[Rfam]
RNA sequence: CCGGUUCCGGUUCACGCCCGAGUCCGUGCCCCGCCGCGACCAUCUGCCGCCGGGUCGGACGCCGAGGGGCGACCCGGCGACC
Numbered sequence: 001c002c003g004g005u006u007c008c009g010g011u012u013c014a015c016g017c018c019c020g021a022g023u024c025c026g027u028g029c030c031c032c033g034c035c036g037c038g039a040c041c042a043u044c045u046g047c048c049g050c051c052g053g054g055u056c057g058g059a060c061g062c063c064g065a066g067g068g069g070c071g072a073c074c075c076g077g078c079g080a081c082c
Base pairs, nucleotide, nucleotide: 003082004081005080007077008076009075010074015071016070017069018068019067
L31-Actinobacteria ribosomal protein leader: an 82-nucleotide RNA sequence. The family's RNA type in Rfam is cis-regulatory leader.